[Rfam]
Shown here is a 111-nucleotide sequence from Mycoplasma sp. CAG:472, a member of the family "Ribosomal protein L10 leader". NCBI's taxonomy places the organism under Bacteria, Bacillati, Mycoplasmatota, Mollicutes, Mycoplasma. It scores 66 bits against the family's covariance model. It is annotated as a cis-regulatory leader.

RNA sequence: AAUUAGAAAAAACGAGAGCCAAAGACAGUAGGCGCCCAAAAGGCUUAAUUUCCUACCGAGGGGAAAGUUAUCUUUUAAAGCUUCCCCAUGGGAAGUUUUUUCUAAAAAUAA
Numbered sequence: 001a002a003u004u005a006g007a008a009a010a011a012a013c014g015a016g017a018g019c020c021a022a023a024g025a026c027a028g029u030a031g032g033c034g035c036c037c038a039a040a041a042g043g044c045u046u047a048a049u050u051u052c053c054u055a056c057c058g059a060g061g062g063g064a065a066a067g068u069u070a071u072c073u074u075u076u077a078a079a080g081c082u083u084c085c086c087c088a089u090g091g092g093a094a095g096u097u098u099u100u101u102c103u104a105a106a107a108a109u110a111a
Stems, first nucleotide, its partner, number of pairs: 028056005034044003080096007